[Rfam]
RNA sequence: CGAAUAGCUCCGUGUUGCCGUCUGACCCCCGACCCGACGGCAACACGGGGCUCUUGU
Numbered sequence: 001c002g003a004a005u006a007g008c009u010c011c012g013u014g015u016u017g018c019c020g021u022c023u024g025a026c027c028c029c030c031g032a033c034c035c036g037a038c039g040g041c042a043a044c045a046c047g048g049g050g051c052u053c054u055u056g057u
Stems, first nucleotide, its partner, number of pairs: 003055002007051016
The family of this 57-nucleotide RNA sequence from Mycolicibacterium gilvum is "F6 TB sRNA". The organism belongs to Mycolicibacterium gilvum, within Bacteria. It is one of the family's seed sequences. The family has 16 seed sequences and 310 matches in Rfam 15.1. For this family Rfam cites "Identification of small RNAs in Mycobacterium tuberculosis" (Arnvig and Young, Mol Microbiol, 2009).